Rfam assigns this 113-nucleotide RNA from Perca fluviatilis to the family "Small nucleolar RNA SNORD67".
Rfam's curators write: snoRNA HBII-166 belongs to the C/D family of snoRNAs.
It scores 58 bits against the family's covariance model.
Its family is annotated with nucleolus and RNA processing in the Gene Ontology.
NCBI's taxonomy places the organism under Eukaryota, Craniata, Teleostei, Eupercaria, Perca.
It is annotated as a C/D-box small nucleolar RNA.
On this family, see Huttenhofer et al., EMBO J 2001: "RNomics: an experimental approach that identifies 201 candidates for novel, small, non-messenger RNAs in mouse".

Nucleotides: 113
Stems, first nucleotide, its partner, number of pairs: 004112001007109001024067004029061003033056003041050003
Number, partner (000 for none) and nucleotide at each position: 001000u002000g003000u004112g005000a006000c007109a008000a009000u010000g011000a012000u013000g014000a015000g016000u017000u018000g019000c020000a021000c022000c023000a024067u025066u026065a027064g028000u029061c030060a031059g032000g033056u034055u035054g036000c037000u038000g039000a040000u041050u042049g043048c044000a045000g046000u047000g048043g049042c050041a051000c052000a053000g054035c055034g056033g057000a058000c059031c060030u061029g062000u063000c064027c065026u066025g067024a068000c069000c070000a071000c072000c073000u074000g075000u076000g077000g078000u079000g080000a081000c082000a083000c084000a085000c086000a087000c088000u089000g090000u091000g092000c093000a094000c095000a096000g097000g098000g099000g100000c101000c102000a103000u104000c105000u106000g107000a108000g109007u110000c111000a112004c113000a